[Rfam]
RNA: Small nucleolar RNA Z40
RNA sequence: GAAUGUUAUGAUGAUGGGCAAAAUGUUCAACUGCUCUGAAUAAGCUGAAUAAAAAAGCCAUCUGAACAUCC
Numbered sequence: 001g002a003a004u005g006u007u008a009u010g011a012u013g014a015u016g017g018g019c020a021a022a023a024u025g026u027u028c029a030a031c032u033g034c035u036c037u038g039a040a041u042a043a044g045c046u047g048a049a050u051a052a053a054a055a056a057g058c059c060a061u062c063u064g065a066a067c068a069u070c071c
Stems, first nucleotide, its partner, number of pairs: 003069004